Rfam assigns this 85-nucleotide RNA from Desulfovibrio sp. 6_1_46AFAA to the family "sRNA-Xcc1".
[Rfam]
RNA sequence: GGCCGGGAGUAGGCUAAUACAAUACCGAGCAAUCGGGAAUAUGCCUGCCGCUCGCGUGCGGUUUCUAGCUCCCGGCCUUUUGCAU
Numbered sequence: 001g002g003c004c005g006g007g008a009g010u011a012g013g014c015u016a017a018u019a020c021a022a023u024a025c026c027g028a029g030c031a032a033u034c035g036g037g038a039a040u041a042u043g044c045c046u047g048c049c050g051c052u053c054g055c056g057u058g059c060g061g062u063u064u065c066u067a068g069c070u071c072c073c074g075g076c077c078u079u080u081u082g083c084a085u
Stems, first nucleotide, its partner, number of pairs: 001077009012045003015041002025036003047062005
Dot-bracket structure: (((((((((..(((((........(((......)))...)).))).(((((......)))))......)))))))))........
Background: The literature on the family includes a 2011 paper in RNA Biol by Chen et al., "sRNA-Xcc1, an integron-encoded transposon- and plasmid-transferred trans-acting sRNA, is under the positive control of the key virulence regulators HrpG and HrpX of Xanthomonas campestris pathovar campestris". By type it is a small RNA.